[Rfam]
RNA: Ruegeria cis2 sRNA
Nucleotides: 152
Base pairs, nucleotide, nucleotide: 002034003033004032007031008030010028012026014024015023016022039053040051041050063152064151065150066149067148069081070080071079072078085146088143090141091140092139097133098132100129101128103125104124106122107121109118110117111116
Number, partner (000 for none) and nucleotide at each position: 001000g002034a003033g004032g005000u006000a007031u008030g009000a010028u011000g012026c013000g014024g015023g016022g017000u018000g019000u020000a021000g022016u023015u024014c025000a026012g027000g028010a029000a030008c031007a032004u033003c034002u035000c036000g037000c038000c039053g040051c041050g042000u043000g044000c045000c046000u047000g048000g049000u050041c051040g052000a053039u054000a055000c056000a057000g058000u059000g060000a061000a062000a063152c064151a065150g066149c067148g068000g069081g070080u071079u072078c073000c074000a075000g076000u077000c078072g079071a080070a081069c082000a083000g084000c085146g086000c087000a088143a089000u090141c091140a092139u093000c094000c095000a096000g097133c098132c099000g100129g101128g102000c103125a104124g105000c106122a107121u108000a109118u110117u111116g112000a113000c114000a115000a116111c117110g118109a119000a120000c121107a122106u123000c124104u125103u126000u127000c128101c129100c130000g131000a132098g133097g134000c135000g136000a137000u138000c139092a140091u141090g142000u143088u144000c145000a146085c147000c148067c149066g150065c151064u152063g